[Rfam]
This 129-nucleotide RNA sequence from Corynebacterium doosanense belongs to the Rfam family "atpB RNA". Lineage of the source: Bacteria > Bacillati > Actinomycetes > Corynebacterium > Corynebacterium doosanense. The family's RNA type in Rfam is cis-regulatory element.
RNA sequence: UUGUCACCGUCGUCGCUGAUGUGCGACGGAGUCCGCGACGGUGGCAGUGAGUUUUAAGACGUCCAUCGCACCGAGCAGGGCACUCGCCCUGUCGGCCCGAGAACGGGAGAGAACGCUGAGCGUUACCAC
Numbered sequence: 001u002u003g004u005c006a007c008c009g010u011c012g013u014c015g016c017u018g019a020u021g022u023g024c025g026a027c028g029g030a031g032u033c034c035g036c037g038a039c040g041g042u043g044g045c046a047g048u049g050a051g052u053u054u055u056a057a058g059a060c061g062u063c064c065a066u067c068g069c070a071c072c073g074a075g076c077a078g079g080g081c082a083c084u085c086g087c088c089c090u091g092u093c094g095g096c097c098c099g100a101g102a103a104c105g106g107g108a109g110a111g112a113a114c115g116c117u118g119a120g121c122g123u124u125a126c127c128a129c
Stems, first nucleotide, its partner, number of pairs: 001047012071095003075092006